[Rfam]
RNA sequence: GGUGGCAAAUGAUGUGAAAAGAAUAAUAUGCUAAACACCGAAUCUUCGAAGUGUGGACAAACAUCUCCGCUUAUUAUCUGAUGCCACC
Numbered sequence: 001g002g003u004g005g006c007a008a009a010u011g012a013u014g015u016g017a018a019a020a021g022a023a024u025a026a027u028a029u030g031c032u033a034a035a036c037a038c039c040g041a042a043u044c045u046u047c048g049a050a051g052u053g054u055g056g057a058c059a060a061a062c063a064u065c066u067c068c069g070c071u072u073a074u075u076a077u078c079u080g081a082u083g084c085c086a087c088c
Base pairs, nucleotide, nucleotide: 003086004085005084006083007082